[Rfam]
RNA sequence: GGUAUUGUUUACCUCCACAAAUAGGCCCCGGAAACUUAUUAAAGUUGAGUUAAACAAAAC
Numbered sequence: 001g002g003u004a005u006u007g008u009u010u011a012c013c014u015c016c017a018c019a020a021a022u023a024g025g026c027c028c029c030g031g032a033a034a035c036u037u038a039u040u041a042a043a044g045u046u047g048a049g050u051u052a053a054a055c056a057a058a059a060c
Base pairs, nucleotide, nucleotide: 006056007055008054009053010052011051020040021039022038023037024036025035
The record is a 60-nucleotide RNA from Pediococcus cellicola, which matches "Ribosomal protein L13 leader" in Rfam. This family is a putative r-protein leader autoregulatory structure found in B. subtilis and other low-GC Gram-positive bacteria. It is located in the 5' untranslated regions of mRNAs encoding the L13-S9 (rplM-rpsI) ribosomal protein operon. It is annotated as a cis-regulatory leader. The family's consensus secondary structure was predicted with CMfinder.